RNA sequence: GGCCUCCCUCUUUGGGGCGAUCGAUUGUGGGGGUCCACGAUCGAUUGGCCCAAAGAGGUAGGCC
Numbered sequence: 001g002g003c004c005u006c007c008c009u010c011u012u013u014g015g016g017g018c019g020a021u022c023g024a025u026u027g028u029g030g031g032g033g034u035c036c037a038c039g040a041u042c043g044a045u046u047g048g049c050c051c052a053a054a055g056a057g058g059u060a061g062g063c064c
Base pairs, nucleotide, nucleotide: 001064002063003062004061005060007058008057009056010055011054012053013052014051015050016049018047019046020045021044022043023042024041025040026039027038028037029036030035
A member of the RNA family "mir-9242 microRNA precursor family" from Myotis brandtii, 64 nucleotides long. It scores 65 bits against the family's covariance model. The family has 2 seed sequences and 940 matches in Rfam 15.1. Lineage of the source: Eukaryota > Opisthokonta > Bilateria > Dipnotetrapodomorpha > Myotis.